[Rfam]
RNA sequence: AUACUUACCUGGCAGGGGAGAUACCAUGAUCACGAAGAUGGUUCUCCCAGGGCGAGGCUCAUCUACUGUACUCCCAGUGUGCUGACCUCUGCAAUUCCCCCAAUCUCAGGAAACUCAAAUGCAUAGUCUGUGGGAGUGCAGUCUACAUUUGCUCUCUCUGCU
Number, nucleotide and partner (000 for none) at each position: 001a000002u000003a000004c000005u000006u000007a000008c000009c000010u000011g000012g122013c121014a120015g000016g048017g047018g046019a045020g044021a043022u000023a042024c041025c040026a039027u038028g000029a000030u000031c000032a000033c000034g000035a000036a000037g000038a027039u026040g025041g024042u023043u021044c020045u019046c018047c017048c016049a090050g089051g088052g087053c000054g086055a000056g083057g082058c081059u000060c079061a078062u077063c000064u076065a000066c000067u000068g000069u000070a000071c000072u000073c000074c000075c000076a064077g062078u061079g060080u000081g058082c057083u056084g000085a000086c054087c052088u051089c050090u049091g000092c000093a000094a115095u113096u111097c110098c000099c109100c000101c000102a000103a000104u000105c000106u000107c000108a000109g099110g097111a096112a000113a095114c000115u094116c000117a000118a000119a000120u014121g013122c012123a000124u000125a000126g000127u000128c000129u000130g000131u000132g000133g000134g000135a000136g000137u000138g161139c160140a159141g158142u000143c000144u000145a000146c000147a000148u000149u000150u000151g000152c000153u000154c000155u000156c000157u000158c141159u140160g139161c138162u000

A member of the RNA family "U1 spliceosomal RNA" from Castor canadensis, 162 nucleotides long. U1 is a small nuclear RNA (snRNA) component of the spliceosome (involved in pre-mRNA splicing). Rfam links the family to the GO terms mRNA 5'-splice site recognition, U1 snRNP and pre-mRNA 5'-splice site binding. The organism belongs to Castor, within Eukaryota. The family's RNA type in Rfam is spliceosomal small nuclear RNA. The family's consensus secondary structure is taken from published work.